Rfam assigns this 88-nucleotide sequence from Inhella gelatinilytica to the family "c-di-GMP-I riboswitch aptamer". Taxonomically the source falls in Inhella (Bacteria, Pseudomonadati, Burkholderiales, Sphaerotilaceae). The base pairs follow the family's consensus structure, which is taken from published work.

RNA sequence: CCAUCCAUCCCGCAAACCCGGCGAAAGCCGGGGACGCAAAGCCUCCGGCCUACAGCAACUGGGUUGCCACGGUAGCGGGGCUGCCGGU
Numbered sequence: 001c002c003a004u005c006c007a008u009c010c011c012g013c014a015a016a017c018c019c020g021g022c023g024a025a026a027g028c029c030g031g032g033g034a035c036g037c038a039a040a041g042c043c044u045c046c047g048g049c050c051u052a053c054a055g056c057a058a059c060u061g062g063g064u065u066g067c068c069a070c071g072g073u074a075g076c077g078g079g080g081c082u083g084c085c086g087g088u
Stems, first nucleotide, its partner, number of pairs: 012037002017032006040082004045078003048073003055067004
The family is grouped with related families in Rfam's "c-di-GMP_I riboswitch clan".